[Rfam]
A member of the RNA family "ylbH leader" from Texcoconibacillus texcoconensis, 133 nucleotides long.
RNA sequence: AUAGAAAAGGGGCUGACGAACAACGUCAGCCCCUGCCUCAUGGCAAACAAAACUUUAUGCUUCAUUUGCGUAGGCUAUGGGAGAGGAGAAACCGGAGGAAGAACUUAUGGGGAAACGUAAGCCUUCUCCGCGG
Numbered sequence: 001a002u003a004g005a006a007a008a009g010g011g012g013c014u015g016a017c018g019a020a021c022a023a024c025g026u027c028a029g030c031c032c033c034u035g036c037c038u039c040a041u042g043g044c045a046a047a048c049a050a051a052a053c054u055u056u057a058u059g060c061u062u063c064a065u066u067u068g069c070g071u072a073g074g075c076u077a078u079g080g081g082a083g084a085g086g087a088g089a090a091a092c093c094g095g096a097g098g099a100a101g102a103a104c105u106u107a108u109g110g111g112g113a114a115a116c117g118u119a120a121g122c123c124u125u126c127u128c129c130g131c132g133g
Stems, first nucleotide, its partner, number of pairs: 011031008037081005043069005093130004098126004104121004
Record summary: From the family's description: This family is a putative regulatory RNA structure that is found upstream of the ylbH gene in B. subtilis and related low GC Gram-positive bacteria. The base pairs follow the family's consensus structure. By type it is a cis-regulatory leader. A search with the family's covariance model found it, with a score of 84 bits.